[Rfam]
RNA: epsC RNA
Organism: Bacillaceae bacterium SAS-127
RNA sequence: UGGUAAUGUCUCCUCACCAUUAUCAAUGGAGGCACUCGGUUAUACUGUGGGCGAGUAUGAAUCCUCGCCUUAGACGCGAGUCGUCAAUAGUAUAGCGUGAGGACGGGUUGGAUGCCCA
Numbered sequence: 001u002g003g004u005a006a007u008g009u010c011u012c013c014u015c016a017c018c019a020u021u022a023u024c025a026a027u028g029g030a031g032g033c034a035c036u037c038g039g040u041u042a043u044a045c046u047g048u049g050g051g052c053g054a055g056u057a058u059g060a061a062u063c064c065u066c067g068c069c070u071u072a073g074a075c076g077c078g079a080g081u082c083g084u085c086a087a088u089a090g091u092a093u094a095g096c097g098u099g100a101g102g103a104c105g106g107g108u109u110g111g112a113u114g115c116c117c118a
Stems, first nucleotide, its partner, number of pairs: 001019004007034007035101004039096008049070007073085004105117004